[Rfam]
RNA sequence: GAAGUUGUCGUCCUCGGCGGCCAGCAGCGCGCUGAUGAAGUCGGGCGGAAUGUCCUCGAAGCGGAUCGGCGUGCGGCGCAUCUCGCCGAACUCGGCGAUCAGCAGGUCGUCGGCGCUGUAGAUCCGCAGCGGUACCUGCAUGCGCACGUUGCGCAGGGUUUCCGCCGCCGGCAGGUUCGGACUCAGGUAGAGGUAGGUGCCGCUGAGGCCGAGCAGCACGGCGCUGAACAGGGCGACACAGGUCCACAACAGGAAUUUCAGUACGCGCAUCGGCAAUCUGGCUGAUUCGGAAAGGG
Numbered sequence: 001g002a003a004g005u006u007g008u009c010g011u012c013c014u015c016g017g018c019g020g021c022c023a024g025c026a027g028c029g030c031g032c033u034g035a036u037g038a039a040g041u042c043g044g045g046c047g048g049a050a051u052g053u054c055c056u057c058g059a060a061g062c063g064g065a066u067c068g069g070c071g072u073g074c075g076g077c078g079c080a081u082c083u084c085g086c087c088g089a090a091c092u093c094g095g096c097g098a099u100c101a102g103c104a105g106g107u108c109g110u111c112g113g114c115g116c117u118g119u120a121g122a123u124c125c126g127c128a129g130c131g132g133u134a135c136c137u138g139c140a141u142g143c144g145c146a147c148g149u150u151g152c153g154c155a156g157g158g159u160u161u162c163c164g165c166c167g168c169c170g171g172c173a174g175g176u177u178c179g180g181a182c183u184c185a186g187g188u189a190g191a192g193g194u195a196g197g198u199g200c201c202g203c204u205g206a207g208g209c210c211g212a213g214c215a216g217c218a219c220g221g222c223g224c225u226g227a228a229c230a231g232g233g234c235g236a237c238a239c240a241g242g243u244c245c246a247c248a249a250c251a252g253g254a255a256u257u258u259c260a261g262u263a264c265g266c267g268c269a270u271c272g273g274c275a276a277u278c279u280g281g282c283u284g285a286u287u288c289g290g291a292a293a294g295g296g
Stems, first nucleotide, its partner, number of pairs: 010172003015167003019163002024046002029041002047084002050081003054078001057075002061070002086095003101160003106154002108148003117140005124132003176292003180288002183285002186279002197268004202262006213239001217235001219233001222231001243254003